Shown here is a 562-nucleotide RNA, a member of the family "ROOL RNA".

RNA sequence: GCCAGCUUAAACAUGAUUACCUCGGUGUAGAGAGGUUUUUCAGCCUUGCCGAGAUGUGCAGUAACGAGAUAGAUAAAUUCGGGAUACUGGAUUUAUUGAUUCUUUCCUCAGAGAGUGAUCCUGCGGAGAAGAUGGAAACCGUCAACAAUGCUGUGCAGUGUAUCAUCAUAGAGAAAAUCAAAAGCAGAAUCCUUGUGGUCGGCGUAGAAAAGACGCUUACGGUGUAAGAAUAAUCCAUUGAUGUCGGCAGUGUGAGAGACUACGGACUAAAUGGAACUCUAAAAGAAGUCGAUUUGCCUUGAACCUGAGAAAUCGGGGUAUAACACAAGAAAUUCGUUAAAGUAGCGGUAUGGCAGCAAACAAAAAGUUUCCUCAAUAGAGUAUUGAGUUUUUAAAACAUCUGAAAGAACCGUGAAAUUUGCAGGUGAAAUCCUGCAUGUGCUUUGACCGCGGCAAGAAGCAUAGGGUCGCUCCCGAAAGCUCAGACUUGUCGUCACAUUGGUUGAAUAUGAUUGCAUCGUCGAUGAAUAAGGGGAAGCCCUAAUCAUGUUUAUUUUGGAGU
Numbered sequence: 001g002c003c004a005g006c007u008u009a010a011a012c013a014u015g016a017u018u019a020c021c022u023c024g025g026u027g028u029a030g031a032g033a034g035g036u037u038u039u040u041c042a043g044c045c046u047u048g049c050c051g052a053g054a055u056g057u058g059c060a061g062u063a064a065c066g067a068g069a070u071a072g073a074u075a076a077a078u079u080c081g082g083g084a085u086a087c088u089g090g091a092u093u094u095a096u097u098g099a100u101u102c103u104u105u106c107c108u109c110a111g112a113g114a115g116u117g118a119u120c121c122u123g124c125g126g127a128g129a130a131g132a133u134g135g136a137a138a139c140c141g142u143c144a145a146c147a148a149u150g151c152u153g154u155g156c157a158g159u160g161u162a163u164c165a166u167c168a169u170a171g172a173g174a175a176a177a178u179c180a181a182a183a184g185c186a187g188a189a190u191c192c193u194u195g196u197g198g199u200c201g202g203c204g205u206a207g208a209a210a211a212g213a214c215g216c217u218u219a220c221g222g223u224g225u226a227a228g229a230a231u232a233a234u235c236c237a238u239u240g241a242u243g244u245c246g247g248c249a250g251u252g253u254g255a256g257a258g259a260c261u262a263c264g265g266a267c268u269a270a271a272u273g274g275a276a277c278u279c280u281a282a283a284a285g286a287a288g289u290c291g292a293u294u295u296g297c298c299u300u301g302a303a304c305c306u307g308a309g310a311a312a313u314c315g316g317g318g319u320a321u322a323a324c325a326c327a328a329g330a331a332a333u334u335c336g337u338u339a340a341a342g343u344a345g346c347g348g349u350a351u352g353g354c355a356g357c358a359a360a361c362a363a364a365a366a367g368u369u370u371c372c373u374c375a376a377u378a379g380a381g382u383a384u385u386g387a388g389u390u391u392u393u394a395a396a397a398c399a400u401c402u403g404a405a406a407g408a409a410c411c412g413u414g415a416a417a418u419u420u421g422c423a424g425g426u427g428a429a430a431u432c433c434u435g436c437a438u439g440u441g442c443u444u445u446g447a448c449c450g451c452g453g454c455a456a457g458a459a460g461c462a463u464a465g466g467g468u469c470g471c472u473c474c475c476g477a478a479a480g481c482u483c484a485g486a487c488u489u490g491u492c493g494u495c496a497c498a499u500u501g502g503u504u505g506a507a508u509a510u511g512a513u514u515g516c517a518u519c520g521u522c523g524a525u526g527a528a529u530a531a532g533g534g535g536a537a538g539c540c541c542u543a544a545u546c547a548u549g550u551u552u553a554u555u556u557u558g559g560a561g562u
Stems, first nucleotide, its partner, number of pairs: 003559001005557001010552002018544001021053005032047005055157006067103003070099001072097001074095009104128004109123003113120002131143005163543001170521001177514001183510001184504001187335004192329006198293006216228004234275006244265003249261003255280003294356005304317005339418001345413005400486004424434002438498003450495001453492001456489002460482001463477001465475003531542004
Rfam describes the family as follows. Firmicutes, Fusobacteria (1 example), Tenericutes (1 example).